[Rfam]
RNA sequence: AGCUGGUCUGAUGGUAGUGGGUUAUCAGAACUUAUUAACAUUAGUGUCAUUAAAGUUGGUAUACAACCUGCCACCCGCCACUGUUAUAUUUGACUGGUUUUUU
Numbered sequence: 001a002g003c004u005g006g007u008c009u010g011a012u013g014g015u016a017g018u019g020g021g022u023u024a025u026c027a028g029a030a031c032u033u034a035u036u037a038a039c040a041u042u043a044g045u046g047u048c049a050u051u052a053a054a055g056u057u058g059g060u061a062u063a064c065a066a067c068c069u070g071c072c073a074c075c076c077g078c079c080a081c082u083g084u085u086a087u088a089u090u091u092g093a094c095u096g097g098u099u100u101u102u103u
Base pairs, nucleotide, nucleotide: 001099002098003097004096005095006094007093008092010091011090014087015086016082017081018080019079020078021075033061034060035059037057038056
RNA: Y RNA
Organism: Rhinopithecus roxellana